[Rfam]
RNA: c-di-AMP riboswitch aptamer (ydaO/yuaA leader)
Organism: Renibacterium salmoninarum
RNA sequence: UGCCUCUGAUCGCCGGGAUUCGAACCUUUUAGGCAAGGACGGGGGAACCAUUUUUGACCGGUCCGCAACCGGUCUUGGGGUUAAGUCUUGAGAUUUUAAUGCUGCUCUAGGAAGCCGCAUUUUUUCGAAAGCCGGGUCGCUCUCCGAUCCGAAUCCGACAGCUAACCUCGCAGGUGCUUGAGAGAGGAAUC
Numbered sequence: 001u002g003c004c005u006c007u008g009a010u011c012g013c014c015g016g017g018a019u020u021c022g023a024a025c026c027u028u029u030u031a032g033g034c035a036a037g038g039a040c041g042g043g044g045g046a047a048c049c050a051u052u053u054u055u056g057a058c059c060g061g062u063c064c065g066c067a068a069c070c071g072g073u074c075u076u077g078g079g080g081u082u083a084a085g086u087c088u089u090g091a092g093a094u095u096u097u098a099a100u101g102c103u104g105c106u107c108u109a110g111g112a113a114g115c116c117g118c119a120u121u122u123u124u125u126c127g128a129a130a131g132c133c134g135g136g137u138c139g140c141u142c143u144c145c146g147a148u149c150c151g152a153a154u155c156c157g158a159c160a161g162c163u164a165a166c167c168u169c170g171c172a173g174g175u176g177c178u179u180g181a182g183a184g185a186g187g188a189a190u191c
Stems, first nucleotide, its partner, number of pairs: 011176004019037002040170005049077002078156003086131001088129002134150004